Source information: Shown here is a 102-nucleotide RNA from Mariniplasma anaerobium, a member of the family "Purine riboswitch aptamer". The source organism's lineage runs through Bacteria, Mycoplasmatota, Acholeplasmatales, Acholeplasmataceae and Mariniplasma. The base pairs follow the family's consensus structure, which is taken from published work. Gene Ontology term of the family: purine nucleobase biosynthetic process.
RNA sequence: CUGAACAAGUAUUCAAUAUAUCGUAUAAUCGACUAAAUGUGGUGGUCAAGUUUCUACCGUGAAGCCGUAAAAUUCACGACUACGAUAUGAAAACAUCUUUUU
Numbered sequence: 001c002u003g004a005a006c007a008a009g010u011a012u013u014c015a016a017u018a019u020a021u022c023g024u025a026u027a028a029u030c031g032a033c034u035a036a037a038u039g040u041g042g043u044g045g046u047c048a049a050g051u052u053u054c055u056a057c058c059g060u061g062a063a064g065c066c067g068u069a070a071a072a073u074u075c076a077c078g079a080c081u082a083c084g085a086u087a088u089g090a091a092a093a094c095a096u097c098u099u100u101u102u
Base pairs, nucleotide, nucleotide: 018088019087020086021085022084023083024082025081029049031047032046033045034044035043058078059077060076061075062074063073